[Rfam]
Shown here is an 81-nucleotide sequence from Argiope bruennichi, a member of the family "mir-2040 microRNA precursor family".
Taxonomically the source falls in Argiope (Eukaryota, Protostomia, Araneae, Entelegynae).
The base pairs follow the family's consensus structure, which was predicted with RNAalifold.
RNA sequence: GACGCUUUAUAAGCCAGAUAACAGCUACGAGACAAGAGAAAUUCUCUUGUCUCGUAGCUGUUAUCUGGCUUAUAAAGCGUC
Dot-bracket structure: ((((((..((.(((((((((.(((.(((((.(((((((.....))))))).))))).))).))))))))).))..))))))